[Rfam]
RNA sequence: AUUAUUUGAGGUGGUAAAAUUCGUUGCCAACCACGAACCCUAUGGGUUAAAAAAGACGCAGGAGUCGCGAUGCCUGCCAAAUAAU
Numbered sequence: 001a002u003u004a005u006u007u008g009a010g011g012u013g014g015u016a017a018a019a020u021u022c023g024u025u026g027c028c029a030a031c032c033a034c035g036a037a038c039c040c041u042a043u044g045g046g047u048u049a050a051a052a053a054a055g056a057c058g059c060a061g062g063a064g065u066c067g068c069g070a071u072g073c074c075u076g077c078c079a080a081a082u083a084a085u
Stems, first nucleotide, its partner, number of pairs: 001085008011034005024070004037047004058077005